[Rfam]
RNA sequence: CACACACCGAAGUACUUUGCACAAUGCCCGGCUUCUAGCAGGUGUUCCGGAACCGGAACACCUGCUAGAAGCCGGGCAUUGUGCAAAGUACUUCGGUGCAUUG
Numbered sequence: 001c002a003c004a005c006a007c008c009g010a011a012g013u014a015c016u017u018u019g020c021a022c023a024a025u026g027c028c029c030g031g032c033u034u035c036u037a038g039c040a041g042g043u044g045u046u047c048c049g050g051a052a053c054c055g056g057a058a059c060a061c062c063u064g065c066u067a068g069a070a071g072c073c074g075g076g077c078a079u080u081g082u083g084c085a086a087a088g089u090a091c092u093u094c095g096g097u098g099c100a101u102u103g
Stems, first nucleotide, its partner, number of pairs: 001103002005098006012091008022081024
Background: mir-130 microRNA precursor family: a 103-nucleotide RNA from Felis catus. Rfam links the family to the GO terms RISC complex and miRNA-mediated post-transcriptional gene silencing.